Source information
A member of the RNA family "Fluoride riboswitch aptamer (crcB RNA motif)" from Streptomyces tagetis, 73 nucleotides long. Rfam links the family to the GO terms positive regulation of gene expression and response to fluoride.
RNA sequence: GGUGACGAGGGCGAUGGGGCCCGCCGCGACCGCACGAGCGAGACGGCACCGUGCUGAUGGCCUCUACGUGGAU
Numbered sequence: 001g002g003u004g005a006c007g008a009g010g011g012c013g014a015u016g017g018g019g020c021c022c023g024c025c026g027c028g029a030c031c032g033c034a035c036g037a038g039c040g041a042g043a044c045g046g047c048a049c050c051g052u053g054c055u056g057a058u059g060g061c062c063u064c065u066a067c068g069u070g071g072a073u
Stems, first nucleotide, its partner, number of pairs: 010025004016064006032054004